[Rfam]
A member of the RNA family "MIR2599 microRNA precursor family" from Medicago truncatula, 132 nucleotides long.
RNA sequence: AUGGGUACAAGGAAUCUACUUUAUUCAACACACUAACCUAAUUUCCGAGACAUUUUACAUGCCUGAAACAUGUCUUAGAAAUUAUGGUUUUUCUUGGUUUGUGUGCUGAACAAAGUAGAUUCCUUGUACCCA
Numbered sequence: 001a002u003g004g005g006u007a008c009a010a011g012g013a014a015u016c017u018a019c020u021u022u023a024u025u026c027a028a029c030a031c032a033c034u035a036a037c038c039u040a041a042u043u044u045c046c047g048a049g050a051c052a053u054u055u056u057a058c059a060u061g062c063c064u065g066a067a068a069c070a071u072g073u074c075u076u077a078g079a080a081a082u083u084a085u086g087g088u089u090u091u092u093c094u095u096g097g098u099u100u101g102u103g104u105g106c107u108g109a110a111c112a113a114a115g116u117a118g119a120u121u122c123c124u125u126g127u128a129c130c131c132a
Base pairs, nucleotide, nucleotide: 002132003131004130005129006128007127008126009125010124011123012122013121014120015119016118017117018116019115020114021113022112024110025109029105030104031103032102033101035099036098037097046096047095048094056084057083059082060081064077065076066075068073

It is one of the family's seed sequences. The family's consensus secondary structure was predicted with RNAalifold. Lineage of the source: Eukaryota > eudicotyledons > rosids > fabids > Medicago. Rfam links the family to the GO terms RISC complex and miRNA-mediated post-transcriptional gene silencing.